Rfam assigns this 76-nucleotide RNA to the family "chrB-a RNA". Rfam 15.1 lists 347 matches to the family in 339 species. The base pairs follow the family's consensus structure, which is taken from published work.
RNA sequence: CCCAUGGGGAUCGCGAUCUCCCCAUGAGGCGACAUGCUGAAGUAUCGCGUCCUGCUCACAAUGGGGACGCCGCAUG
Dot-bracket structure: ....((((((........))))))......................((((((............))))))......